[Rfam]
Nucleotides: 047
Base pairs, nucleotide, nucleotide: 005043006042007041008040009039010038015032018034019033021030022029023028
Number, partner (000 for none) and nucleotide at each position: 001000u002000u003000u004000a005043g006042g007041a008040g009039u010038a011000g012000a013000a014000g015032c016000g017000g018034u019033u020000a021030g022029g023028g024000a025000u026000u027000c028023c029022c030021c031000g032015g033019g034018a035000c036000a037000u038010u039009g040008c041007u042006c043005u044000u045000u046000a047000g